RNA: T-box leader
RNA sequence: CAAAAUUUGUUGACGAGAACAAGUAGGCCGUUGGCAUGCUCCCAGAGAAUCCGAUGAUUGCUGUGAGUCGGUGAGCAAAGCAAUGGUUGAAUAUCAUCUCCGAGAAGCGGCGCCGAAUCGAAUUGAAACAAGACUAAGCGCUGACGGAAUCCACCGUUACCUGGAGUGCGGAUAUCGAUGAUCCGUGAAUGAGUGUCAAGUAUUGAAUUAUGUCGGUCCUGACUGAUCCUGCGGACUAUGCAGAGAAAGUCACGGCCCUUCAGAGGGUACUUGGAACAAGGGUGGUAGCGCGAGCAUGUCCUCGUCCCUUUU
Numbered sequence: 001c002a003a004a005a006u007u008u009g010u011u012g013a014c015g016a017g018a019a020c021a022a023g024u025a026g027g028c029c030g031u032u033g034g035c036a037u038g039c040u041c042c043c044a045g046a047g048a049a050u051c052c053g054a055u056g057a058u059u060g061c062u063g064u065g066a067g068u069c070g071g072u073g074a075g076c077a078a079a080g081c082a083a084u085g086g087u088u089g090a091a092u093a094u095c096a097u098c099u100c101c102g103a104g105a106a107g108c109g110g111c112g113c114c115g116a117a118u119c120g121a122a123u124u125g126a127a128a129c130a131a132g133a134c135u136a137a138g139c140g141c142u143g144a145c146g147g148a149a150u151c152c153a154c155c156g157u158u159a160c161c162u163g164g165a166g167u168g169c170g171g172a173u174a175u176c177g178a179u180g181a182u183c184c185g186u187g188a189a190u191g192a193g194u195g196u197c198a199a200g201u202a203u204u205g206a207a208u209u210a211u212g213u214c215g216g217u218c219c220u221g222a223c224u225g226a227u228c229c230u231g232c233g234g235a236c237u238a239u240g241c242a243g244a245g246a247a248a249g250u251c252a253c254g255g256c257c258c259u260u261c262a263g264a265g266g267g268u269a270c271u272u273g274g275a276a277c278a279a280g281g282g283u284g285g286u287a288g289c290g291c292g293a294g295c296a297u298g299u300c301c302u303c304g305u306c307c308c309u310u311u312u
Stems, first nucleotide, its partner, number of pairs: 007105002015100004026088006038076003051071005108143006145156003196274009279309004290305005